[Rfam]
RNA sequence: GAUGCUAAACCCGUCACGGAAUAGACGUUACGGACCCGGGGGCGGUACCCGGCGUCUCCACCAAAUUUUCUGCCUGCCCUGUCUACAGGGCCUUGCAAAGGGCAGGAAGCAUGGGGACGAAACAGGAUCGACGUGCGUAGUAAAGGUUUCGGCUGUAUCCGGCAUGGUAUCCACCGUCAUCGGGCCAAUCACAACAAGUGCCAACGACAACGUUGAACUUGCCGCUGCCGCUUAA
Number, nucleotide and partner (000 for none) at each position: 001g159002a158003u157004g156005c155006u000007a000008a000009a000010c000011c000012c000013g000014u000015c000016a147017c146018g000019g000020a000021a000022u000023a000024g000025a000026c137027g136028u135029u000030a134031c133032g132033g000034a000035c000036c052037c051038g050039g049040g048041g000042g000043c000044g000045g000046u000047a000048c040049c039050c038051g037052g036053c119054g118055u117056c116057u115058c114059c113060a000061c000062c000063a000064a000065a000066u000067u000068u000069u000070c000071u000072g000073c000074c000075u000076g000077c000078c000079c000080u000081g000082u000083c000084u000085a000086c000087a000088g000089g000090g000091c000092c000093u000094u000095g000096c000097a000098a000099a000100g000101g000102g000103c000104a000105g000106g000107a000108a000109g000110c000111a000112u000113g059114g058115g057116g056117a055118c054119g053120a000121a000122a000123c000124a000125g000126g000127a000128u000129c000130g000131a000132c032133g031134u030135g028136c027137g026138u000139a000140g000141u000142a000143a000144a000145g000146g017147u016148u000149u000150c000151g000152g000153c000154u000155g005156u004157a003158u002159c001160c176161g175162g174163c000164a000165u000166g000167g000168u000169a000170u000171c000172c000173a000174c162175c161176g160177u000178c000179a000180u000181c000182g000183g000184g000185c000186c000187a000188a000189u000190c000191a000192c000193a000194a000195c000196a000197a000198g000199u000200g000201c000202c000203a000204a000205c000206g000207a000208c000209a000210a000211c000212g000213u000214u000215g000216a000217a000218c000219u000220u000221g000222c000223c000224g000225c000226u000227g000228c000229c000230g000231c000232u000233u000234a000235a000

permuted transfer-messenger RNA: a 235-nucleotide sequence from Novispirillum itersonii. Rfam classes the family as a non-coding RNA gene. For this family Rfam cites "Phylogenetic analysis of tmRNA secondary structure" (Williams and Bartel, RNA, 1996). Lineage of the source: Bacteria > Pseudomonadati > Rhodospirillales > Novispirillaceae > Novispirillum. From the family's description: Bacterial tmRNA, also known as 10Sa RNA or SsrA, is named for its dual tRNA and mRNA-like properties. Its role is to liberate the mRNA from a stalled ribosome. To accomplish this part of the tmRNA is used as a reading frame that ends in a translation stop signal.